[Rfam]
RNA sequence: GAAUAUCGAACUCUCCGAGCCGCAGCGUCUAAAAGGAUACCUCAUGACGCCAGGCCAACGGGUGCCGCUGGAAACGGUGGCGCCUCCCUUCUGGAAAGGAGACCUUCAGGCCGUACU
Numbered sequence: 001g002a003a004u005a006u007c008g009a010a011c012u013c014u015c016c017g018a019g020c021c022g023c024a025g026c027g028u029c030u031a032a033a034a035g036g037a038u039a040c041c042u043c044a045u046g047a048c049g050c051c052a053g054g055c056c057a058a059c060g061g062g063u064g065c066c067g068c069u070g071g072a073a074a075c076g077g078u079g080g081c082g083c084c085u086c087c088c089u090u091c092u093g094g095a096a097a098g099g100a101g102a103c104c105u106u107c108a109g110g111c112c113g114u115a116c117u
Stems, first nucleotide, its partner, number of pairs: 004110001006108001012102005019055003025050005034042003060085011086094002
The family of this 117-nucleotide RNA from Geobacter sp. DSM 9736 is "Molybdenum/Tungsten riboswitch aptamer (Moco RNA motif)".
A search with the family's covariance model found it, with a score of 67 bits.
The family's consensus secondary structure is taken from published work.